[Rfam]
RNA sequence: UCUUCUUGAAAGACAUGGGUAGUGAGAUGUUUAAUUAAUAAAUUUUGUCUCACUACCUUGUCUUUCAUGUAGCG
Numbered sequence: 001u002c003u004u005c006u007u008g009a010a011a012g013a014c015a016u017g018g019g020u021a022g023u024g025a026g027a028u029g030u031u032u033a034a035u036u037a038a039u040a041a042a043u044u045u046u047g048u049c050u051c052a053c054u055a056c057c058u059u060g061u062c063u064u065u066c067a068u069g070u071a072g073c074g
Stems, first nucleotide, its partner, number of pairs: 008066008017058003021054009
RNA: mir-71 microRNA precursor family
Organism: Tribolium castaneum